The record is a 74-nucleotide sequence from Rhodnius prolixus, which matches "mir-1000 microRNA precursor family" in Rfam.
RNA sequence: GACGGUAUUAUUGUCCUGUCACAGCAGUAUUGUUGAGCUUAAUCCUACUGCUGCAACGGGACAUAGCCACCGAA
Numbered sequence: 001g002a003c004g005g006u007a008u009u010a011u012u013g014u015c016c017u018g019u020c021a022c023a024g025c026a027g028u029a030u031u032g033u034u035g036a037g038c039u040u041a042a043u044c045c046u047a048c049u050g051c052u053g054c055a056a057c058g059g060g061a062c063a064u065a066g067c068c069a070c071c072g073a074a
Stems, first nucleotide, its partner, number of pairs: 003072004012063007022053008
Dot-bracket structure: ..((((.....(((((((...((((((((................))))))))...))))))).....))))..
Rfam 15.1 lists 152 matches to the family in 150 species.